[Rfam]
RNA: mir-3492 microRNA precursor family
Organism: Trichobilharzia regenti
RNA sequence: AGCCUUCUGUAUCCGUGCUGAGAUUUCGUCAGAGAUCAACCCGUUAGGGCUGAUGCAGCUUCCCAAAUAAGUGAAGCG
Numbered sequence: 001a002g003c004c005u006u007c008u009g010u011a012u013c014c015g016u017g018c019u020g021a022g023a024u025u026u027c028g029u030c031a032g033a034g035a036u037c038a039a040c041c042c043g044u045u046a047g048g049g050c051u052g053a054u055g056c057a058g059c060u061u062c063c064c065a066a067a068u069a070a071g072u073g074a075a076g077c078g
Base pairs, nucleotide, nucleotide: 002077003076005074006073008071010069011068012067017062020061021060022059024058025057027055028054029053030052